[Rfam]
RNA sequence: ACACAAUAAAACGUUCUCUACAAGCUUACCUGAAGGACAUUCCCGAAUAACGCGGUCUGAUGUCUUGGGAGGAAAGCCCCCUGGGCGCGGAAAUCGCAGCCGAAGUGACUUUGCGAUUGGGAGGAAUGAUCGCCGAGUUGCUUUUAAUGGGGUGACACGCGAACUGGAAAGCAAGGCUUCGGCCUUGCUUUUUUAU
Numbered sequence: 001a002c003a004c005a006a007u008a009a010a011a012c013g014u015u016c017u018c019u020a021c022a023a024g025c026u027u028a029c030c031u032g033a034a035g036g037a038c039a040u041u042c043c044c045g046a047a048u049a050a051c052g053c054g055g056u057c058u059g060a061u062g063u064c065u066u067g068g069g070a071g072g073a074a075a076g077c078c079c080c081c082u083g084g085g086c087g088c089g090g091a092a093a094u095c096g097c098a099g100c101c102g103a104a105g106u107g108a109c110u111u112u113g114c115g116a117u118u119g120g121g122a123g124g125a126a127u128g129a130u131c132g133c134c135g136a137g138u139u140g141c142u143u144u145u146a147a148u149g150g151g152g153u154g155a156c157a158c159g160c161g162a163a164c165u166g167g168a169a170a171g172c173a174a175g176g177c178u179u180c181g182g183c184c185u186u187g188c189u190u191u192u193u194u195a196u
Stems, first nucleotide, its partner, number of pairs: 003196001005194002051161004063073003077154001079152003084101003087097003103145003170189008
This 196-nucleotide RNA from Methylobrevis pamukkalensis belongs to the Rfam family "Alphaproteobacterial sRNA ar9".
Lineage of the source: Bacteria > Pseudomonadota > Alphaproteobacteria > Pleomorphomonadaceae > Methylobrevis.